Shown here is a 117-nucleotide RNA sequence from Carboxydocella thermautotrophica, a member of the family "SAM riboswitch aptamer (S box leader)". A search with the family's covariance model found it, with a score of 92 bits.
RNA sequence: CUCUUAUCCAGAGAGGUGGAGGGACUGGCCCGAUGAAACCCGGCAACAGCCCAUGCGUUGGGGACGACGGAUGGGAAAUGUGCCAAUUCCUGCAGGUGUUUACCUGACAGAUAAGAG
Numbered sequence: 001c002u003c004u005u006a007u008c009c010a011g012a013g014a015g016g017u018g019g020a021g022g023g024a025c026u027g028g029c030c031c032g033a034u035g036a037a038a039c040c041c042g043g044c045a046a047c048a049g050c051c052c053a054u055g056c057g058u059u060g061g062g063g064a065c066g067a068c069g070g071a072u073g074g075g076a077a078a079u080g081u082g083c084c085a086a087u088u089c090c091u092g093c094a095g096g097u098g099u100u101u102a103c104c105u106g107a108c109a110g111a112u113a114a115g116a117g
Stems, first nucleotide, its partner, number of pairs: 001117008013041001015040003021031003025092001027090002042084004047080002050075005088109001093106005